[Rfam]
Nucleotides: 113
Stems, first nucleotide, its partner, number of pairs: 001113008013042005021031003026084003043077004048073002052068005081105001086102006
Number, partner (000 for none) and nucleotide at each position: 001113u002112c003111c004110u005109u006108a007107u008106c009000a010000a011000g012000a013042g014041a015040g016039g017038c018000g019000g020000a021031g022030g023029g024000a025000a026084u027083g028082g029023c030022c031021c032000u033000a034000a035000g036000a037000u038017g039016c040015c041014u042013c043077a044076g045075c046074a047000a048073c049072c050000a051000a052068c053067a054066u055065g056064u057000u058000u059000c060000a061000u062000u063000u064056g065055c066054a067053u068052g069000c070000a071000c072049g073048g074046u075045g076044c077043u078000a079000a080000u081105u082028c083027c084026a085000a086102c087101a088100g089099a090098a091097g092000u093000u094000a095000a096000a097091c098090u099089u100088c101087u102086g103000a104000u105081a106008g107007a108006u109005g110004a111003g112002g113001g